[Rfam]
About this RNA: Rfam assigns this 460-nucleotide sequence from Erythrocercus mccallii to the family "Vertebrate telomerase RNA". A reference for the family is Chen et al. (2000), "Secondary structure of vertebrate telomerase RNA", Cell. A search with the family's covariance model found it, with a score of 152 bits. The family's consensus secondary structure is taken from published work. Rfam's curators write: Telomerase is a ribonucleoprotein reverse transcriptase that synthesises telomeric DNA. Telomerase RNAs differ greatly in sequence and structure between vertebrates, ciliates and yeasts, but they share a 5' pseudoknot structure close to the template sequence. Vertebrate telomerase RNAs have a 3' H/ACA snoRNA-like domain. The family is grouped with related families in Rfam's "Telomerase clan". Gene Ontology terms of the family: telomere maintenance via telomerase, telomerase activity and telomerase catalytic core complex. The organism belongs to Erythrocercus, within Eukaryota. It is annotated as a non-coding RNA gene.
RNA sequence: UGUGCCGGGGUGGGCAGGCCCUACGACCAUCUAACCCUAAUGGAGGCUGCGCCCCUUACACUCGCCCGCUGUUUUACUCGCUGACUUUCAGCGGGCAAAGGGCGCGGCCUGGGGAAAGGGGGGCGGGCAUGGGGGUACAAUAGUUCCUGCCUCAAAAAAAGCCAGCGACGGGGAUCCACACCCCGGCCCACCCUGGGGUCCCCGUCCUUCCUGCGCAACCAGGGACGGUCCCGCCCUCGCCCCUCGUGUAGGCCGCGGUCGGCGGCUGCAGCGCCACUGCCGCCGCGAAGAGUUCGUCUCUGUCAGCCUCGGCGGCGGCGGGGACCGAAGAGCCGGCCCGCCCCUCCGGGCCGGCUCCCUCGGGGACCCCAGCAGAGCAAACGGGGAUGGUCCCUCGGGGCGCUGAACAUCCGCGGCUCCUUAAAAUGUGGAGUACGCGGUCGAUGCCGCCCCGACAUCC
Numbered sequence: 001u002g003u004g005c006c007g008g009g010g011u012g013g014g015c016a017g018g019c020c021c022u023a024c025g026a027c028c029a030u031c032u033a034a035c036c037c038u039a040a041u042g043g044a045g046g047c048u049g050c051g052c053c054c055c056u057u058a059c060a061c062u063c064g065c066c067c068g069c070u071g072u073u074u075u076a077c078u079c080g081c082u083g084a085c086u087u088u089c090a091g092c093g094g095g096c097a098a099a100g101g102g103c104g105c106g107g108c109c110u111g112g113g114g115a116a117a118g119g120g121g122g123g124c125g126g127g128c129a130u131g132g133g134g135g136u137a138c139a140a141u142a143g144u145u146c147c148u149g150c151c152u153c154a155a156a157a158a159a160a161g162c163c164a165g166c167g168a169c170g171g172g173g174a175u176c177c178a179c180a181c182c183c184c185g186g187c188c189c190a191c192c193c194u195g196g197g198g199u200c201c202c203c204g205u206c207c208u209u210c211c212u213g214c215g216c217a218a219c220c221a222g223g224g225a226c227g228g229u230c231c232c233g234c235c236c237u238c239g240c241c242c243c244u245c246g247u248g249u250a251g252g253c254c255g256c257g258g259u260c261g262g263c264g265g266c267u268g269c270a271g272c273g274c275c276a277c278u279g280c281c282g283c284c285g286c287g288a289a290g291a292g293u294u295c296g297u298c299u300c301u302g303u304c305a306g307c308c309u310c311g312g313c314g315g316c317g318g319c320g321g322g323g324a325c326c327g328a329a330g331a332g333c334c335g336g337c338c339c340g341c342c343c344c345u346c347c348g349g350g351c352c353g354g355c356u357c358c359c360u361c362g363g364g365g366a367c368c369c370c371a372g373c374a375g376a377g378c379a380a381a382c383g384g385g386g387a388u389g390g391u392c393c394c395u396c397g398g399g400g401c402g403c404u405g406a407a408c409a410u411c412c413g414c415g416g417c418u419c420c421u422u423a424a425a426a427u428g429u430g431g432a433g434u435a436c437g438c439g440g441u442c443g444a445u446g447c448c449g450c451c452c453c454g455a456c457a458u459c460c
Stems, first nucleotide, its partner, number of pairs: 005186008014177001017175001019173004053102005064096008080166004085161001086159003193372007227339002230336002235323007244312003254287005260282004264275003289301004384452003389448003394443001411440005417433004